[Rfam]
RNA sequence: AGUUCUGAUGCACCGAUUUUUGCAGGUGGAGAACGAGGAGACAUGAGGCACAAAAGUGCCCAUACAAAAGCGCUGUUGGACUGGCUCCAGCAGCGCUUUUUA
Numbered sequence: 001a002g003u004u005c006u007g008a009u010g011c012a013c014c015g016a017u018u019u020u021u022g023c024a025g026g027u028g029g030a031g032a033a034c035g036a037g038g039a040g041a042c043a044u045g046a047g048g049c050a051c052a053a054a055a056g057u058g059c060c061c062a063u064a065c066a067a068a069a070g071c072g073c074u075g076u077u078g079g080a081c082u083g084g085c086u087c088c089a090g091c092a093g094c095g096c097u098u099u100u101u102a
Stems, first nucleotide, its partner, number of pairs: 002034004009030001011028004015023001038065001043063003047060005067099014
Source information: This 102-nucleotide RNA sequence from Paraburkholderia phymatum belongs to the Rfam family "Burkholderia sRNA 1". Taxonomically the source falls in Paraburkholderia phymatum (Bacteria, Pseudomonadota, Betaproteobacteria, Burkholderiaceae). For this family Rfam cites "Identification of small RNAs abundant in Burkholderia cenocepacia biofilms reveal putative regulators with a potential role in carbon and iron metabolism" (Sass et al., Sci Rep, 2017). The family's RNA type in Rfam is small RNA. Rfam's curators put it in the seed alignment. From the family's description: Identified by RNA-seq, RACE and Northern blot. Strongly expressed in biofilm. The family's consensus secondary structure was predicted with RNAfold.